[Rfam]
RNA sequence: GUAAUAUAAGAUACGGUCUCUUAUCUUUUAACUAAAAAAGCUAAAAGAAGUCUGUUAAAUAAGAGAUAUAAGAGACGUCUCUUAGCUUUUUUAUUUAAAAGCUAAGAAACCGUAUUUUAUAUUAC
Numbered sequence: 001g002u003a004a005u006a007u008a009a010g011a012u013a014c015g016g017u018c019u020c021u022u023a024u025c026u027u028u029u030a031a032c033u034a035a036a037a038a039a040g041c042u043a044a045a046a047g048a049a050g051u052c053u054g055u056u057a058a059a060u061a062a063g064a065g066a067u068a069u070a071a072g073a074g075a076c077g078u079c080u081c082u083u084a085g086c087u088u089u090u091u092u093a094u095u096u097a098a099a100a101g102c103u104a105a106g107a108a109a110c111c112g113u114a115u116u117u118u119a120u121a122u123u124a125c
Base pairs, nucleotide, nucleotide: 001125002124003123004122005121006120007119008118009117010116011115012114013113014112015111016110017109019107020106021105022104023103025101026100027099028098029097030096031095033093034092035091036090037089038088039087041085042084043083044082046080047079

Overview:
The record is a 125-nucleotide RNA sequence from Brassica cretica, which matches "MIR9563 microRNA precursor family" in Rfam. Taxonomically the source falls in Brassica (Eukaryota, Spermatophyta, rosids, malvids). Rfam 15.1 lists 5,832 matches to the family in 9 species.